Source information:
The record is a 65-nucleotide RNA from Odobenus rosmarus, which matches "Small nucleolar RNA SNORD77" in Rfam. Gene Ontology terms of the family: nucleolus and RNA processing.
[Rfam]
RNA sequence: AUACUAUGAUGGUUGCAUAGUUCAGCAGAUUGGAUCAUUUAAGAGAGACACCAUUUGAUGUAUCU
Numbered sequence: 001a002u003a004c005u006a007u008g009a010u011g012g013u014u015g016c017a018u019a020g021u022u023c024a025g026c027a028g029a030u031u032g033g034a035u036c037a038u039u040u041a042a043g044a045g046a047g048a049c050a051c052c053a054u055u056u057g058a059u060g061u062a063u064c065u
Base pairs, nucleotide, nucleotide: 001063002062003061004060006038007037008036009035010034013028014027015026016025043052

The literature on the family includes a 2004 paper in Curr Biol by Tycowski et al., "Guide RNAs with 5' caps and novel box C/D snoRNA-like domains for modification of snRNAs in metazoa". Taxonomically the source falls in Odobenus rosmarus (Eukaryota, Eumetazoa, Deuterostomia, Pinnipedia). It scores 64 bits against the family's covariance model. It is annotated as a C/D-box small nucleolar RNA. From the family's description: U77 belongs to the C/D family of snoRNAs. It is predicted to guide 2'O-ribose methylation of large 28S rRNA subunit at position A1521. The C/D snoRNAs U44, U47, U74, U75, U76, U78, U79, U80 and U81 share the same host gene as U77 (non-coding). Its Rfam clan is "SNORD77 clan".